[Rfam]
Fluoride riboswitch aptamer (crcB RNA motif): a 67-nucleotide RNA sequence from Hydrotalea sandarakina. Taxonomically the source falls in Hydrotalea (Bacteria, Pseudomonadati, Chitinophagales, Chitinophagaceae). The family's consensus secondary structure is taken from published work.
RNA sequence: UUAAGAAGAGGUGAUGGUGUCCACCGAAUAAACUGCCCAAAAAUGGGAUGAUGGCGCCUACAAAUUA
Numbered sequence: 001u002u003a004a005g006a007a008g009a010g011g012u013g014a015u016g017g018u019g020u021c022c023a024c025c026g027a028a029u030a031a032a033c034u035g036c037c038c039a040a041a042a043a044u045g046g047g048a049u050g051a052u053g054g055c056g057c058c059u060a061c062a063a064a065u066u067a
Stems, first nucleotide, its partner, number of pairs: 010025004016058006036047003